[Rfam]
RNA sequence: CUCUUAUUCAGAGUGGUGGAGGUACAUAGGACCUGUGAAGCCACGGCAACCUUUGCCUGCUUUGCAUUUGUGCAAGAAGCAAAAGGUGCCAACCUGAGCGAUGGUGUUUGAAUACGCAGUCGAGCAAUAAGGG
Numbered sequence: 001c002u003c004u005u006a007u008u009c010a011g012a013g014u015g016g017u018g019g020a021g022g023u024a025c026a027u028a029g030g031a032c033c034u035g036u037g038a039a040g041c042c043a044c045g046g047c048a049a050c051c052u053u054u055g056c057c058u059g060c061u062u063u064g065c066a067u068u069u070g071u072g073c074a075a076g077a078a079g080c081a082a083a084a085g086g087u088g089c090c091a092a093c094c095u096g097a098g099c100g101a102u103g104g105u106g107u108u109u110g111a112a113u114a115c116g117c118a119g120u121c122g123a124g125c126a127a128u129a130a131g132g133g
Base pairs, nucleotide, nucleotide: 001133002132003131004130005129006128007127008126013044014043015042016041017040021033022032023031027098030095045090046089047088048087050086051085053082054081055080056079099122100121101120102119104117105116106115107114
The record is a 133-nucleotide sequence from Firmicutes bacterium CAG:791, which matches "SAM riboswitch aptamer (S box leader)" in Rfam. Clan: SAM clan.